A member of the RNA family "Small nucleolar RNA SNORA71", 131 nucleotides long. The literature on the family includes a 1997 paper in Genes Dev by Ganot et al., "The family of box ACA small nucleolar RNAs is defined by an evolutionarily conserved secondary structure and ubiquitous sequence elements essential for RNA accumulation". The family's RNA type in Rfam is H/ACA-box small nucleolar RNA. The members of this family belong to the H/ACA class of snoRNAs which bind a number of proteins (including dyskerin, Gar1p and Nop10p) to form snoRNP complexes. This class of snoRNAs are thought to guide the sites of modification of uridines to pseudouridines by forming direct base pairing interactions with substrate RNAs. This family includes U71 (SNORA71), ACA39 (SNORA39) and ACA60 (SNORA60). U71 and ACA60 are predicted to guide the pseudouridylation of U406 and U1004 in 18S rRNA respectively. There is currently no target RNA identified for ACA39. The base pairs follow the family's consensus structure, which was predicted with PFOLD.

RNA sequence: CCCUGUGUUGGAAAGGGAUUGUGGGCUUCCCAAACCCUAGGCACGGAUACUGCAGGGAGAGGAUGCUAAAAGCCAUCCUCAUGUUUGGAAGGUCCACUCCUAUCCUUACCAGAUCCUGGUGCUUUUGAACA
Numbered sequence: 001c002c003c004u005g006u007g008u009u010g011g012a013a014a015g016g017g018a019u020u021g022u023g024g025g026c027u028u029c030c031c032a033a034a035c036c037c038u039a040g041g042c043a044c045g046g047a048u049a050c051u052g053c054a055g056g057g058a059g060a061g062g063a064u065g066c067u068a069a070a071a072g073c074c075a076u077c078c079u080c081a082u083g084u085u086u087g088g089a090a091g092g093u094c095c096a097c098u099c100c101u102a103u104c105c106u107u108a109c110c111a112g113a114u115c116c117u118g119g120u121g122c123u124u125u126u127g128a129a130c131a
Base pairs, nucleotide, nucleotide: 001057002056003055004054005053006052007051009049015044017042019040020039021038023037024036025035067127068126069125070124071123072122073121083114084113085112086111087110089107090106091105092104